[Rfam]
This 413-nucleotide sequence from Chitinivorax tropicus belongs to the Rfam family "cspA thermoregulator". For this family Rfam cites "The cspA mRNA is a thermosensor that modulates translation of the cold-shock protein CspA" (Giuliodori et al., Mol Cell, 2010). Its family is annotated with response to temperature stimulus and regulation of translation in the Gene Ontology. It is annotated as an RNA thermoregulator.
RNA sequence: CCAGUUUUGUCGCACAAUGCCAACCGCAGGAUUUUCAAGCAGAAUUUGUAAGCCGUUGUAGUGGUUGAAACCGUACCUCAGUUCGCCGUUCCCCUUGAUUCUCAUGCAUAACUGGGCGAAGCCCGUCAUUUUUUCACCAUUGCUCAAAAGGGAUAUACUCAUGGCAACAGGUACCGUUAAGUGGUUCAACGACUCCAAAGGUUUUGGCUUUAUCAAACCCGAUGAUGGUGGCGACGAUUUGUUCGCACACUUCUCUCAAAUUCAGUCCAACGGCUUCAAGAGCCUGGCUGAAAACCAGCGCGUGAGCUUCGAAAUCACCACUGGCCCCAAAGGCAAGCAAGCCUCGAACAUUCAGCCGCUGUAAUCGCUCGCUGAUUGGUCAAAAAAGCCCGGUGUGAACCGGGCUUUUUGCA
Numbered sequence: 001c002c003a004g005u006u007u008u009g010u011c012g013c014a015c016a017a018u019g020c021c022a023a024c025c026g027c028a029g030g031a032u033u034u035u036c037a038a039g040c041a042g043a044a045u046u047u048g049u050a051a052g053c054c055g056u057u058g059u060a061g062u063g064g065u066u067g068a069a070a071c072c073g074u075a076c077c078u079c080a081g082u083u084c085g086c087c088g089u090u091c092c093c094c095u096u097g098a099u100u101c102u103c104a105u106g107c108a109u110a111a112c113u114g115g116g117c118g119a120a121g122c123c124c125g126u127c128a129u130u131u132u133u134u135c136a137c138c139a140u141u142g143c144u145c146a147a148a149a150g151g152g153a154u155a156u157a158c159u160c161a162u163g164g165c166a167a168c169a170g171g172u173a174c175c176g177u178u179a180a181g182u183g184g185u186u187c188a189a190c191g192a193c194u195c196c197a198a199a200g201g202u203u204u205u206g207g208c209u210u211u212a213u214c215a216a217a218c219c220c221g222a223u224g225a226u227g228g229u230g231g232c233g234a235c236g237a238u239u240u241g242u243u244c245g246c247a248c249a250c251u252u253c254u255c256u257c258a259a260a261u262u263c264a265g266u267c268c269a270a271c272g273g274c275u276u277c278a279a280g281a282g283c284c285u286g287g288c289u290g291a292a293a294a295c296c297a298g299c300g301c302g303u304g305a306g307c308u309u310c311g312a313a314a315u316c317a318c319c320a321c322u323g324g325c326c327c328c329a330a331a332g333g334c335a336a337g338c339a340a341g342c343c344u345c346g347a348a349c350a351u352u353c354a355g356c357c358g359c360u361g362u363a364a365u366c367g368c369u370c371g372c373u374g375a376u377u378g379g380u381c382a383a384a385a386a387a388g389c390c391c392g393g394u395g396u397g398a399a400c401c402g403g404g405c406u407u408u409u410u411g412c413a
Stems, first nucleotide, its partner, number of pairs: 004020002007017003029220002032217003043211002048208002053206001054201001056199002058196001060194002064190005070185003076163001078161001080159003091151002095147003100118001102116002165171001223317004236244002248304003252300001255298002262287004271280001322336001324334001327333002337362003341359001344355001346353001365379003369375002383410012